Archaeal small subunit ribosomal RNA: a 503-nucleotide part of an RNA from Methanosphaera stadtmanae.
[Rfam]
Nucleotides: 503
Base pairs, nucleotide, nucleotide: 004020005019006018007017008016022493023492024491025490026489027488028487029486030485031484033382034381035380036379037378038377039376040375041374042340048338049337050336052335053334054333057079058078059077062076063075064074065073066072067071086293087292088291096217097216098215099214100213101212102211105210106209110206111205112204113203114202115201116200118152119151120150121149127142128141129140130139131138132137158182159181160180161179163177166175167174190198219265220264221263226256227255228254231253232252233251234250235249236248237247238246268290269289270288271287272283273282274281275280295316296315297314298313299312300311318329319328320327321326346372348371349370350369354367355366356365357364358363385404386403387402388401389400390399391398392397410428413425414424415423436482437481438480439479440478441477449476450475451474452473458465459464
Number, partner (000 for none) and nucleotide at each position: 001000a002000a003000u004020c005019c006018g007017u008016u009000u010000g011000a012000u013000c014000c015000u016008g017007g018006c019005g020004g021000a022493a023492g024491c025490u026489a027488c028487u029486g030485c031484u032000a033382u034381u035380g036379g037378g038377a039376u040375u041374c042340g043000a044000u045000u046000a047000a048338g049337c050336c051000a052335u053334g054333c055000a056000a057079g058078u059077c060000g061000a062076a063075u064074g065073a066072a067071c068000c069000u070000a071067g072066u073065u074064c075063a076062u077059g078058g079057c080000a081000u082000a083000c084000g085000g086293c087292u088291c089000a090000g091000u092000a093000a094000c095000a096217c097216g098215u099214g100213g101212a102211u103000a104000a105210c106209u107000u108000a109000c110206c111205c112204u113203u114202a115201g116200g117000a118152c119151c120150g121149g122000g123000a124000u125000a126000a127142c128141u129140u130139u131138g132137g133000g134000a135000a136000a137132c138131u139130g140129a141128a142127g143000a144000u145000a146000a147000u148000a149121c150120u151119g152118g153000a154000u155000a156000u157000u158182a159181g160180g161179u162000u163177a164000u165000g166175c167174c168000u169000g170000g171000a172000a173000u174167g175166g176000u177163u178000u179161a180160c181159c182158u183000u184000u185000g186000a187000a188000a189000u190198g191000u192000a193000u194000u195000u196000u197000u198190c199000g200116c201115c202114u203113a204112a205111g206110g207000a208000u209106a210105g211102a212101u213100c214099u215098g216097c217096g218000g219265c220264u221263g222000a223000u224000u225000a226256g227255g228254u229000c230000g231253u232252u233251g234250g235249u236248g237247g238246g239000g240000u241000a242000a243000u244000g245000g246238c247237c248236c249235a250234c251233c252232a253231a254228g255227c256226c257000g258000a259000u260000g261000a262000u263221c264220g265219g266000u267000a268290c269289g270288g271287g272283u273282u274281g275280u276000g277000a278000g279000a280275g281274c282273a283272a284000g285000a286000g287271c288270c289269c290268g291088g292087a293086g294000a295316u296315g297314g298313a299312a300311c301000c302000u303000g304000a305000g306000a307000c308000a309000a310000g311300g312299u313298u314297c315296c316295a317000g318329a319328c320327c321326c322000u323000a324000c325000g326321g327320g328319g329318u330000g331000c332000a333054g334053c335052a336050g337049g338048c339000g340042c341000g342000a343000a344000a345000c346372c347000u348371c349370c350369g351000c352000a353000a354367u355366g356365u357364a358363c359000g360000c361000a362000a363358g364357u365356g366355c367354g368000a369350c370349g371348g372346g373000g374041g375040g376039a377038u378037c379036c380035c381034a382033a383000g384000u385404g386403u387402u388401a389400u390399u391398c392397u393000u394000a395000a396000c397392a398391g399390a400389a401388u402387a403386a404385c405000u406000u407000u408000u409000c410428a411000u412000u413425a414424g415423u416000g417000u418000a419000a420000a421000a422000a423415g424414c425413u426000u427000u428410u429000a430000g431000a432000a433000u434000a435000a436482g437481a438480g439479c440478u441477g442000g443000g444000c445000a446000a447000g448000a449476c450475c451474g452473g453000u454000g455000c456000c457000a458465g459464c460000c461000g462000c463000c464459g465458c466000g467000g468000u469000a470000a471000c472000a473452c474451c475450g476449g477441c478440a479439g480438c481437u482436c483000a484031a485030g486029u487028g488027g489026u490025a491024g492023c493022u494000g495000u496000u497000u498000u499000u500000a501000u502000u503000g
Gene Ontology terms of the family: ribosome and structural constituent of ribosome.